[Rfam]
RNA sequence: ACGCCCCUGCCGGCAGCGCGCCAAGAGGGGCCGGGAAACCCGGUAUCCCCACCUCGCUGCCGGAUGGUCUUUUGAACCGAGGCGGCAUG
Numbered sequence: 001a002c003g004c005c006c007c008u009g010c011c012g013g014c015a016g017c018g019c020g021c022c023a024a025g026a027g028g029g030g031c032c033g034g035g036a037a038a039c040c041c042g043g044u045a046u047c048c049c050c051a052c053c054u055c056g057c058u059g060c061c062g063g064a065u066g067g068u069c070u071u072u073u074g075a076a077c078c079g080a081g082g083c084g085g086c087a088u089g
Base pairs, nucleotide, nucleotide: 002084003083004082005081010063011062012061013060015058016057017056018055020053027048028046030044031043032042033041034040065079066078067077